[Rfam]
RNA sequence: GACAUCCACUAGGGGUAUCGAAAGAUUGAGAUGCGCAGUGUGCAAACCCUUAGAACCUGAUCUGGUUUAUACCAGCGUAGGGAAGUGGAGCUAUCUUUGG
Numbered sequence: 001g002a003c004a005u006c007c008a009c010u011a012g013g014g015g016u017a018u019c020g021a022a023a024g025a026u027u028g029a030g031a032u033g034c035g036c037a038g039u040g041u042g043c044a045a046a047c048c049c050u051u052a053g054a055a056c057c058u059g060a061u062c063u064g065g066u067u068u069a070u071a072c073c074a075g076c077g078u079a080g081g082g083a084a085g086u087g088g089a090g091c092u093a094u095c096u097u098u099g100g
Stems, first nucleotide, its partner, number of pairs: 006088005011050004016044001017026003033043004056081004062075004
The family of this 100-nucleotide RNA from Hazenella coriacea is "TPP riboswitch aptamer (THI element)".
The family's consensus secondary structure is taken from published work.
About the family: Vitamin B(1) in its active form thiamin pyrophosphate (TPP) is an essential coenzyme that is synthesised by coupling of pyrimidine and thiazole moieties in bacteria. The previously detected thiamin-regulatory element, thi box was extended, resulting in a new, highly conserved RNA secondary structure, the THI element, which is widely distributed in eubacteria and also occurs in some archaea.
The source organism's lineage runs through Bacteria, Bacilli, Caryophanales, Thermoactinomycetaceae and Hazenella.